The family of this 127-nucleotide RNA sequence from Eurypyga helias is "Small nucleolar RNA SNORA65". The match comes from Rfam's covariance-model search (78 bits). Its Rfam clan is "SNORA65 clan".
RNA sequence: CCCACCACUGUACCUGCCCUGCAAAGCAGUGACUAGUACAGUCCAGAGGUGAGCUGACAGGAAACACCAGCUUAGGAAACAGUUAUUCACCUUGGGGGUGACUUUGUGCCAAAGCCUGGGAACUGGC
Numbered sequence: 001c002c003c004a005c006c007a008c009u010g011u012a013c014c015u016g017c018c019c020u021g022c023a024a025a026g027c028a029g030u031g032a033c034u035a036g037u038a039c040a041g042u043c044c045a046g047a048g049g050u051g052a053g054c055u056g057a058c059a060g061g062a063a064a065c066a067c068c069a070g071c072u073u074a075g076g077a078a079a080c081a082g083u084u085a086u087u088c089a090c091c092u093u094g095g096g097g098g099u100g101a102c103u104u105u106g107u108g109c110c111a112a113a114g115c116c117u118g119g120g121a122a123c124u125g126g127c
Stems, first nucleotide, its partner, number of pairs: 005049002008046003018036001021033001022031002065120001067119003070115004075110002080106002082102002086098003
Dot-bracket structure: ....((.(((.......(..(((......)).)..).......))).))...............(.(((((((.((...((((..(((.......)))..))..))..)).)))).)))).......

Rfam describes the family as follows. U65 belongs to the H/ACA class of snoRNAs which are thought to guide the sites of modification of uridines to pseudouridines. Rfam 15.1 lists 1,089 matches to the family in 619 species.